The family of this 83-nucleotide RNA sequence from Chanos chanos is "Small nucleolar RNA MBII-202". The organism belongs to Chanos, within Eukaryota. The literature on the family includes a 2001 paper in EMBO J by Huttenhofer et al., "RNomics: an experimental approach that identifies 201 candidates for novel, small, non-messenger RNAs in mouse". The family's RNA type in Rfam is C/D-box small nucleolar RNA. Rfam links the family to the GO terms nucleolus and RNA processing.
[Rfam]
RNA sequence: UGAUGACAAAUUCUCCGGAAUCUCUGUAAAUCUUUGAUGAUUCUCCUUGAACCCUUUUUGCUGAUGACUGUCUCUUGCUCCUC
Number, nucleotide and partner (000 for none) at each position: 001u000002g083003a082004u000005g080006a079007c000008a000009a000010a000011u000012u000013c000014u000015c000016c000017g000018g000019a000020a000021u000022c000023u000024c000025u000026g000027u000028a000029a000030a000031u000032c000033u000034u000035u000036g000037a000038u000039g000040a000041u000042u000043c000044u000045c000046c000047u000048u000049g000050a000051a000052c000053c000054c000055u000056u000057u000058u000059u000060g000061c000062u000063g000064a000065u000066g000067a000068c000069u000070g000071u000072c000073u000074c000075u000076u000077g000078c000079u006080c005081c000082u003083c002